[Rfam]
RNA: Alpha operon ribosome binding site
RNA sequence: GCAAAAAGGUUCAGGUUGAGUAUCCUAACGGGCUUUUCAACCUGUGGUUAUUAAUUUUUAAAUAUAGGAGAUGUGUUAGUGGCCCGUAUCGCUGGCAUUAACAUCCCUGAU
Numbered sequence: 001g002c003a004a005a006a007a008g009g010u011u012c013a014g015g016u017u018g019a020g021u022a023u024c025c026u027a028a029c030g031g032g033c034u035u036u037u038c039a040a041c042c043u044g045u046g047g048u049u050a051u052u053a054a055u056u057u058u059u060a061a062a063u064a065u066a067g068g069a070g071a072u073g074u075g076u077u078a079g080u081g082g083c084c085c086g087u088a089u090c091g092c093u094g095g096c097a098u099u100a101a102c103a104u105c106c107c108u109g110a111u
Base pairs, nucleotide, nucleotide: 006052007051009049011047012046013045024095025094029086030085031084032083037110038109039108